[Rfam]
RNA sequence: GUAUUCUGUCGCCCAUGAACCGCAUCCAAACCGAACUCCGACGCCGACGCGCGCUGCCCGCCUGGGAAGCCGUCGGCUAGUCAUGGGUUCGCGCCUUGCAGCAACAUCGCAGGCGCCAAUCGGUCGAAACAUGAAAAGCCACGGAAAUCCGUGGCUUUUUU
Number, nucleotide and partner (000 for none) at each position: 001g000002u000003a000004u000005u129006c000007u127008g000009u000010c000011g094012c093013c000014c091015a000016u000017g000018a000019a000020c000021c000022g000023c000024a000025u000026c000027c000028a000029a000030a000031c086032c085033g084034a000035a000036c000037u000038c000039c080040g000041a078042c000043g077044c076045c075046g073047a000048c000049g070050c069051g000052c000053g000054c065055u000056g000057c000058c000059c000060g000061c000062c000063u000064g000065g054066g000067a000068a000069g050070c049071c000072g000073u046074c000075g045076g044077c043078u041079a000080g039081u000082c000083a000084u033085g032086g031087g000088u000089u000090c000091g014092c000093g012094c011095c000096u000097u000098g000099c000100a000101g000102c000103a000104a000105c000106a000107u000108c000109g000110c000111a000112g000113g000114c000115g000116c000117c000118a000119a000120u000121c000122g000123g000124u000125c000126g000127a007128a000129a005130c000131a000132u000133g000134a000135a158136a157137a156138g155139c154140c153141a152142c151143g150144g149145a000146a000147a000148u000149c144150c143151g142152u141153g140154g139155c138156u137157u136158u135159u000160u000161u000
RNA: Burkholderia sRNA 7
Organism: Trinickia terrae